[Rfam]
RNA sequence: AGAAAAGACCUGAUCGAAUGCAUCUUUGAUGCUCUUGAAUCCGAGUAUUGAUGUGAAAAUUGGCGAAACUGGUCGUUCCGUCAAAACUCGGAUUCAAGAGCAUCAAAGAUGCAUUCGAUCAGGUCUUUU
Numbered sequence: 001a002g003a004a005a006a007g008a009c010c011u012g013a014u015c016g017a018a019u020g021c022a023u024c025u026u027u028g029a030u031g032c033u034c035u036u037g038a039a040u041c042c043g044a045g046u047a048u049u050g051a052u053g054u055g056a057a058a059a060u061u062g063g064c065g066a067a068a069c070u071g072g073u074c075g076u077u078c079c080g081u082c083a084a085a086a087c088u089c090g091g092a093u094u095c096a097a098g099a100g101c102a103u104c105a106a107a108g109a110u111g112c113a114u115u116c117g118a119u120c121a122g123g124u125c126u127u128u129u
Stems, first nucleotide, its partner, number of pairs: 006126006013119016030102017
Shown here is a 129-nucleotide RNA sequence from Diabrotica balteata, a member of the family "MIR397 microRNA precursor family". A reference for the family is Mica et al. (2009), "High throughput approaches reveal splicing of primary microRNA transcripts and tissue specific expression of mature microRNAs in Vitis vinifera", BMC Genomics. Rfam 15.1 lists 496 matches to the family in 218 species.